[Rfam]
RNA sequence: AGGCGGUGAAGCAGUGGGCUGAGUCGGUUACAGUCGAUUGUGGAGCCAGACUGUGGGUUAUGCGGAUACCACAAGCCGAAUAGGCGACGGAAAUGCUGCUGAAAUAAAACGCUAAAA
Numbered sequence: 001a002g003g004c005g006g007u008g009a010a011g012c013a014g015u016g017g018g019c020u021g022a023g024u025c026g027g028u029u030a031c032a033g034u035c036g037a038u039u040g041u042g043g044a045g046c047c048a049g050a051c052u053g054u055g056g057g058u059u060a061u062g063c064g065g066a067u068a069c070c071a072c073a074a075g076c077c078g079a080a081u082a083g084g085c086g087a088c089g090g091a092a093a094u095g096c097u098g099c100u101g102a103a104a105u106a107a108a109a110c111g112c113u114a115a116a117a
Stems, first nucleotide, its partner, number of pairs: 002047003011041005017035005024079004062112003083100004